Rfam assigns this 95-nucleotide RNA sequence from Zostera marina to the family "mir-166 microRNA precursor family".
It scores 76 bits against the family's covariance model.
This family represents the plant microRNA (miRNA) precursor mir-166.
Lineage of the source: Eukaryota > Liliopsida > Alismatales > Zosteraceae > Zostera.
RNA sequence: GUUGAGGGGACUGUUGUCUGGCUCGAGGUCAUCUAGAUAUGCAUGUUGCUAUUCGAUGUCUAUGUGAUCUCGGACCAGGCUUCAUUCCUCUAAAC
Numbered sequence: 001g002u003u004g005a006g007g008g009g010a011c012u013g014u015u016g017u018c019u020g021g022c023u024c025g026a027g028g029u030c031a032u033c034u035a036g037a038u039a040u041g042c043a044u045g046u047u048g049c050u051a052u053u054c055g056a057u058g059u060c061u062a063u064g065u066g067a068u069c070u071c072g073g074a075c076c077a078g079g080c081u082u083c084a085u086u087c088c089u090c091u092a093a094a095c
Stems, first nucleotide, its partner, number of pairs: 001095003005091006012084002016080006024072003